[Rfam]
BsrC: an 88-nucleotide RNA from Paenisporosarcina cavernae. Pairs were carried over by alignment from the consensus structure, which was predicted with CMfinder. It is annotated as a small RNA.
RNA sequence: UUUUCCUUAAGCAACGUAAACCCUACCUUCUUUUACGUCCUUGCGACCCUAUAGUCGCGCCAGUGUGAAUAAGUGUUCCUACAAAACA
Number, nucleotide and partner (000 for none) at each position: 001u000002u000003u000004u000005c000006c000007u000008u000009a000010a000011g000012c000013a000014a000015c000016g000017u000018a000019a000020a000021c000022c000023c000024u000025a000026c000027c000028u000029u000030c000031u000032u000033u000034u000035a000036c067037g066038u000039c000040c063041u062042u059043g058044c057045g056046a055047c054048c000049c000050u000051a000052u000053a000054g047055u046056c045057g044058c043059g042060c000061c000062a041063g040064u000065g000066u037067g036068a000069a000070u000071a000072a000073g000074u000075g000076u000077u000078c000079c000080u000081a000082c000083a000084a000085a000086a000087c000088a000
Rfam 15.1 lists 572 matches to the family in 553 species. From the family's description: The 301 nucleotide sequence from Kouji Nakamura has been trimmed to a highly conserved ~85 nucleotide long core to form this family. It scores 69 bits against the family's covariance model. Taxonomically the source falls in Paenisporosarcina (Bacteria, Bacillati, Caryophanales, Caryophanaceae).